Source information:
The family of this 232-nucleotide RNA sequence from Manihot esculenta is "Early nodulin 40". NCBI's taxonomy places the organism under Eukaryota, Embryophyta, Euphyllophyta, Mesangiospermae, Manihot. For this family Rfam cites "Identification of conserved secondary structures and expansion segments in enod40 RNAs reveals new enod40 homologues in plants" (Gultyaev and Roussis, Nucleic Acids Res, 2007). The family's RNA type in Rfam is non-coding RNA gene.

RNA sequence: GUACUGAUCUUUUAUCAAGAAUCCAUCCUUGGGUCUUCAAAAGCUUGGGGGGCUUGGAGUGAGGGAUCCCUCACCCUCCUCCAAUAUUCCAACAGUCUGCCAGUGCUUAACCAUGACCAUGUCUUACAGAGCUAAAGGAGCCAUCUUUUCUGAAGCAAGCAGAGUUGUCCUGGGCAAUGCCUGGUAGACAAGGCAAGUCACAAAAAGGCAGCAGGCUCUAUUUAUGAGCCUU
Numbered sequence: 001g002u003a004c005u006g007a008u009c010u011u012u013u014a015u016c017a018a019g020a021a022u023c024c025a026u027c028c029u030u031g032g033g034u035c036u037u038c039a040a041a042a043g044c045u046u047g048g049g050g051g052g053c054u055u056g057g058a059g060u061g062a063g064g065g066a067u068c069c070c071u072c073a074c075c076c077u078c079c080u081c082c083a084a085u086a087u088u089c090c091a092a093c094a095g096u097c098u099g100c101c102a103g104u105g106c107u108u109a110a111c112c113a114u115g116a117c118c119a120u121g122u123c124u125u126a127c128a129g130a131g132c133u134a135a136a137g138g139a140g141c142c143a144u145c146u147u148u149u150c151u152g153a154a155g156c157a158a159g160c161a162g163a164g165u166u167g168u169c170c171u172g173g174g175c176a177a178u179g180c181c182u183g184g185u186a187g188a189c190a191a192g193g194c195a196a197g198u199c200a201c202a203a204a205a206a207g208g209c210a211g212c213a214g215g216c217u218c219u220a221u222u223u224a225u226g227a228g229c230c231u232u
Stems, first nucleotide, its partner, number of pairs: 056082003095189006112179003214230005